[Rfam]
The family of this 53-nucleotide RNA sequence from an Alcaligenaceae bacterium is "nhaA-I RNA". The family's RNA type in Rfam is riboswitch. Taxonomically the source falls in Alcaligenaceae (Bacteria, Pseudomonadati, Pseudomonadota, Betaproteobacteria). From the family's description: Acidobacteria, Alphaproteobacteria, Betaproteobacteria and Gammaproteobacteria, Verrucomicrobia, cand. division NC10. The match comes from Rfam's covariance-model search (50 bits).
RNA sequence: GGGUGGCAGGCCGGAUCGGGCCUGUCAGGCAAUGCGAAGGUCGGGCCGCCUCG
Numbered sequence: 001g002g003g004u005g006g007c008a009g010g011c012c013g014g015a016u017c018g019g020g021c022c023u024g025u026c027a028g029g030c031a032a033u034g035c036g037a038a039g040g041u042c043g044g045g046c047c048g049c050c051u052c053g
Base pairs, nucleotide, nucleotide: 005026006025007024008023009022010021011020012019035053036052037051039050040049041048
Dot-bracket structure: ....((((((((......))))))))........(((.(((......))))))